This 52-nucleotide sequence from Agrobacterium fabrum belongs to the Rfam family "serC leader".
A reference for the family is Corbino et al. (2005), "Evidence for a second class of S-adenosylmethionine riboswitches and other regulatory RNA motifs in alpha-proteobacteria", Genome Biol.
The family's RNA type in Rfam is cis-regulatory leader.
This family is a putative regulatory RNA structure that is found upstream of the serC-serA operon in some alpha-proteobacteria. The final stem of the structure overlaps the ribosome binding site of the serC reading frame.
Pairs were carried over by alignment from the consensus structure.
The source organism's lineage runs through Bacteria, Pseudomonadota, Alphaproteobacteria, Agrobacterium and Agrobacterium fabrum.

RNA sequence: CGGCAGGACACCUCUCCCUAACGAGAGGCGCCUAUCUGAAAGGGUAGUCAAA
Numbered sequence: 001c002g003g004c005a006g007g008a009c010a011c012c013u014c015u016c017c018c019u020a021a022c023g024a025g026a027g028g029c030g031c032c033u034a035u036c037u038g039a040a041a042g043g044g045u046a047g048u049c050a051a052a
Stems, first nucleotide, its partner, number of pairs: 011028006032047006